Shown here is a 152-nucleotide RNA from Pseudooceanicola albus, a member of the family "Ruegeria cis2 sRNA". On this family, see Rivers et al., Front Microbiol 2016: "Experimental Identification of Small Non-Coding RNAs in the Model Marine Bacterium Ruegeria pomeroyi DSS-3". The base pairs follow the family's consensus structure, which was predicted with RNAfold.
[Rfam]
RNA sequence: GAGGUGAAGUGCGGCACGUAGUUGAUGAACACGUGGCCGCGGGUCUGGUCGAUGGUGUGAAACAGCGGAUUCCAGUCGAAGAUGUCGCGCAUCUUGGUGGGCAGGGUAUUGACCACGAACAUCUUGCCCGAGGCGAUCAUGUUGGCGCGCCG
Dot-bracket structure: (.(.((.....(((.......))).....))).).(((((((......))).))))......(.(((..(((.....))).....(..((((.....(.((((((((.(((....)))..)))))).))..)......))))..)..))).)